[Rfam]
Nucleotides: 354
Stems, first nucleotide, its partner, number of pairs: 040055005059191005069184002072179003083169002087166003093109005110151007192207004198217002201215003320335004326351006
Number, partner (000 for none) and nucleotide at each position: 001000g002000g003000c004000c005000u006000u007000g008000a009000a010000c011000u012000u013000c014000g015000c016000c017000g018000g019000g020000c021000g022000g023000c024000g025000g026000c027000c028000u029000a030000u031000a032000u033000c034000g035000g036000c037000u038000g039000u040055g041054u042053u043052c044051u045000c046000g047000c048000a049000a050000g051044g052043g053042a054041a055040c056000u057000a058000u059191g060190g061189c062188g063187a064000u065000a066000a067000a068000c069184g070183c071000a072179c073178c074177c075000g076000u077000a078000a079000u080000a081000a082000g083169c084168g085000g086000a087166u088165c089164g090000g091000a092000c093109c094108c095107g096106g097105g098000g099000g100000c101000g102000g103000u104000a105097c106096c107095c108094g109093g110151c111150g112149a113148c114147u115146c116145c117000a118000c119000c120000a121000a122000a123000u124000a125000u126000c127000c128000u129000c130000g131000u132000a133000u134000u135000g136000g137000g138000g139000g140000a141000u142000c143000a144000u145116g146115g147114g148113g149112u150111c151110g152000a153000a154000a155000c156000a157000g158000g159000a160000u161000c162000g163000a164089c165088g166087g167000a168084c169083g170000u171000c172000u173000a174000a175000a176000g177074g178073g179072g180000c181000c182000a183070g184069c185000u186000u187063u188062c189061g190060c191059u192207c193206g194205g195204u196000g197000a198217g199216a200000u201215a202214c203213c204195a205194c206193c207192g208000u209000u210000a211000u212000c213203g214202g215201u216199u217198c218000a219000c220000a221000a222000u223000g224000u225000a226000c227000a228000g229000u230000u231000g232000c233000c234000a235000a236000u237000a238000c239000c240000a241000a242000c243000c244000g245000u246000g247000c248000u249000c250000c251000g252000g253000u254000c255000g256000c257000g258000c259000u260000g261000g262000c263000u264000g265000c266000g267000u268000a269000a270000g271000c272000a273000g274000u275000c276000c277000g278000c279000a280000a281000g282000a283000u284000c285000g286000a287000a288000a289000c290000u291000u292000a293000a294000g295000c296000c297000c298000u299000g300000a301000c302000g303000c304000c305000u306000a307000g308000c309000a310000g311000u312000g313000u314000c315000a316000g317000g318000c319000g320335g321334g322333g323332u324000u325000c326351g327350c328349a329348g330347g331346c332323a333322c334321c335320u336000g337000g338000c339000a340000a341000c342000a343000g344000a345000a346331g347330c348329c349328u350327g351326c352000a353000c354000u

Description
Alphaproteobacteria transfer-messenger RNA: a 354-nucleotide RNA from Jannaschia pohangensis. Pairs were carried over by alignment from the consensus structure, which is taken from published work. It scores 297 bits against the family's covariance model. Bacterial tmRNA, also known as 10Sa RNA or SsrA, is named for its dual tRNA and mRNA-like properties.